Description: Rfam assigns this 100-nucleotide sequence from Sporosarcina sp. JAI121 to the family "Purine riboswitch aptamer". Its family is annotated with purine nucleobase biosynthetic process in the Gene Ontology. The match comes from Rfam's covariance-model search (71 bits).

RNA sequence: UAGAGAGUAAAUAGAAAUCCCCAUAUAUGCUGUGGAAUUGGCCACAGUGUUUCUACCAGGACACCGUAAUGUCCGGACUAUGCGGGAAAGCGACUUUCAG
Numbered sequence: 001u002a003g004a005g006a007g008u009a010a011a012u013a014g015a016a017a018u019c020c021c022c023a024u025a026u027a028u029g030c031u032g033u034g035g036a037a038u039u040g041g042c043c044a045c046a047g048u049g050u051u052u053c054u055a056c057c058a059g060g061a062c063a064c065c066g067u068a069a070u071g072u073c074c075g076g077a078c079u080a081u082g083c084g085g086g087a088a089a090g091c092g093a094c095u096u097u098c099a100g
Stems, first nucleotide, its partner, number of pairs: 018086003022082004029048007057076001059074005
Dot-bracket structure: .................(((.((((...(((((((......)))))))........(.(((((......))))).)..)))).)))..............
Source information:
Taxonomically the source falls in Sporosarcina (Bacteria, Bacillati, Bacilli, Caryophanaceae).